Rfam assigns this 468-nucleotide RNA sequence from Nyctiprogne leucopyga to the family "Vertebrate telomerase RNA". The base pairs follow the family's consensus structure, which is taken from published work. The match comes from Rfam's covariance-model search (168 bits). Rfam's curators write: Telomerase is a ribonucleoprotein reverse transcriptase that synthesises telomeric DNA. Telomerase RNAs differ greatly in sequence and structure between vertebrates, ciliates and yeasts, but they share a 5' pseudoknot structure close to the template sequence. Vertebrate telomerase RNAs have a 3' H/ACA snoRNA-like domain. Its family is annotated with telomere maintenance via telomerase, telomerase activity and telomerase catalytic core complex in the Gene Ontology. Lineage of the source: Eukaryota > Chordata > Aves > Caprimulgiformes > Nyctiprogne. For this family Rfam cites "Secondary structure of vertebrate telomerase RNA" (Chen et al., Cell, 2000).
[Rfam]
RNA sequence: UCGCGUGGCGGGUGGGGAGGUCCCGGUGUCACUAACCCUAAUGGCUGCUGCCGCGCUCCCCGCGCCCGGCCGCUGUUUUACUCGCUGACUUUCAGCGGACGAGGGGAGCAGCGCGGGGGGAGGGGGGGCGGGGGAAAGGGAGGGGAUCCGCCAUGCAAAAAACGUCAGCGAGGGGGCUUCUCACCCCGGCCCGCCCUGGGGUCCCUGUCCACCUCCUACCCCCCGCAGCCGGGGGCUCGCCGCGGAGGCUCCCACCGCCGCACCUUCCAGAGGCCGCGGUCGGCCGGUUCCCGCCAUUGCCGCCGCGAAGAGCUCGUCUCUGUCAGCCUCGGCGGCGAUCGGGAGCGGAGGGGCGCGUCCCCGAGCCGGGGGGACCCCAGCACAGCAAAACGGGAGCGGCGCCUCCGGGAUAAACCGCCGCGCUUCCCUCAGCCGUGGGGCGCGCGGCCGGCGCCGCUCCCGACACGC
Number, nucleotide and partner (000 for none) at each position: 001u000002c000003g000004c193005g192006u000007g191008g190009c189010g186011g185012g184013u183014g182015g181016g180017g179018a000019g178020g177021u176022c175023c174024c000025g000026g000027u000028g000029u000030c000031a000032c000033u000034a000035a000036c000037c000038c000039u000040a000041a000042u000043g000044g000045c000046u000047g000048c000049u000050g000051c000052c000053g000054c000055g109056c108057u107058c106059c105060c000061c000062g000063c000064g000065c000066c000067c101068g100069g000070c098071c097072g096073c095074u094075g093076u000077u000078u000079u000080a000081c000082u000083c000084g169085c168086u167087g166088a165089c164090u162091u161092u160093c075094a074095g073096c072097g071098g070099a000100c068101g067102a000103g000104g000105g059106g058107a057108g056109c055110a000111g000112c000113g000114c000115g000116g000117g000118g000119g000120g000121a000122g000123g000124g000125g000126g000127g000128g000129c000130g000131g000132g000133g000134g000135a000136a000137a000138g000139g000140g000141a000142g000143g000144g000145g000146a000147u000148c000149c000150g000151c000152c000153a000154u000155g000156c000157a000158a000159a000160a092161a091162a090163c000164g089165u088166c087167a086168g085169c084170g000171a000172g000173g000174g023175g022176g021177c020178u019179u017180c016181u015182c014183a013184c012185c011186c010187c000188g000189g009190c008191c007192c005193g004194c000195c000196c380197u379198g378199g377200g376201g375202u374203c000204c000205c000206u000207g000208u000209c000210c000211a000212c000213c000214u000215c000216c000217u000218a000219c000220c000221c000222c000223c000224c000225g000226c000227a000228g000229c000230c000231g000232g000233g360234g359235g358236c357237u000238c355239g354240c353241c352242g000243c000244g000245g000246a000247g000248g346249c345250u344251c343252c342253c341254a000255c000256c000257g336258c335259c334260g333261c332262a000263c000264c000265u000266u000267c000268c000269a000270g000271a000272g000273g000274c000275c307276g306277c305278g304279g303280u000281c302282g301283g300284c299285c000286g295287g294288u293289u000290c000291c000292c000293g288294c287295c286296a000297u000298u000299g284300c283301c282302g281303c279304c278305g277306c276307g275308a000309a321310g320311a319312g318313c000314u000315c000316g000317u000318c312319u311320c310321u309322g000323u000324c000325a000326g000327c000328c000329u000330c000331g000332g261333c260334g259335g258336c257337g000338a000339u000340c000341g253342g252343g251344a250345g249346c248347g000348g000349a000350g000351g000352g241353g240354c239355g238356c000357g236358u235359c234360c233361c000362c000363g000364a000365g000366c000367c000368g000369g000370g000371g000372g000373g000374a202375c201376c200377c199378c198379a197380g196381c000382a000383c000384a000385g000386c000387a000388a000389a000390a000391c000392g000393g460394g459395a458396g457397c456398g455399g454400c453401g452402c451403c450404u000405c000406c000407g000408g000409g000410a000411u000412a000413a000414a000415c000416c000417g000418c447419c446420g445421c444422g443423c000424u000425u440426c439427c438428c437429u000430c000431a000432g000433c000434c000435g000436u000437g428438g427439g426440g425441c000442g000443c422444g421445c420446g419447g418448c000449c000450g403451g402452c401453g400454c399455c398456g397457c396458u395459c394460c393461c000462g000463a000464c000465a000466c000467g000468c000